The family of this 68-nucleotide RNA sequence from Stutzerimonas nosocomialis is "narK RNA". It scores 45 bits against the family's covariance model.

RNA sequence: GGCAGGGAUCUUGCUCCGGCCAAGGUGCAACCAACGAGGGUUGCAUCCUAUGCAGACAAAGGCGUCGC
Numbered sequence: 001g002g003c004a005g006g007g008a009u010c011u012u013g014c015u016c017c018g019g020c021c022a023a024g025g026u027g028c029a030a031c032c033a034a035c036g037a038g039g040g041u042u043g044c045a046u047c048c049u050a051u052g053c054a055g056a057c058a059a060a061g062g063c064g065u066c067g068c
Stems, first nucleotide, its partner, number of pairs: 026045007
By type it is a cis-regulatory element.